[Rfam]
RNA sequence: ACAAACUGUUAGGGGUGCUCCAUUGGGGGCUGAGAAUAAACCCUUUCACCUGAUAUGUAUAAUAACAGCGUAGGGAAACAGUAGCUCAAUGAC
Numbered sequence: 001a002c003a004a005a006c007u008g009u010u011a012g013g014g015g016u017g018c019u020c021c022a023u024u025g026g027g028g029g030c031u032g033a034g035a036a037u038a039a040a041c042c043c044u045u046u047c048a049c050c051u052g053a054u055a056u057g058u059a060u061a062a063u064a065a066c067a068g069c070g071u072a073g074g075g076a077a078a079c080a081g082u083a084g085c086u087c088a089a090u091g092a093c
Base pairs, nucleotide, nucleotide: 006081007080008079009078010077011044012043013042014041016038017030018029019028020027021026049074050073051072052071056067057066058065
Dot-bracket structure: .....(((((((((.((((((....))))).......)..))))....((((...(((......)))...))))..)))))............
Shown here is a 93-nucleotide RNA sequence from Marinilabilia salmonicolor, a member of the family "TPP riboswitch aptamer (THI element)". The base pairs follow the family's consensus structure, which is taken from published work. The source organism's lineage runs through Bacteria, Pseudomonadati, Bacteroidota, Marinilabiliaceae and Marinilabilia. Gene Ontology term of the family: thiamine pyrophosphate binding. Vitamin B(1) in its active form thiamin pyrophosphate (TPP) is an essential coenzyme that is synthesised by coupling of pyrimidine and thiazole moieties in bacteria. The previously detected thiamin-regulatory element, thi box was extended, resulting in a new, highly conserved RNA secondary structure, the THI element, which is widely distributed in eubacteria and also occurs in some archaea. Analysis of operon structures identified a large number of new candidate thiamin-regulated genes, mostly transporters, in various prokaryotic organisms. The THI element is a riboswitch that directly binds to TPP to regulate gene expression through a variety of mechanisms in archaea, bacteria and eukaryotes. through a variety of mechanisms in archaea, bacteria and eukaryotes. It scores 67 bits against the family's covariance model.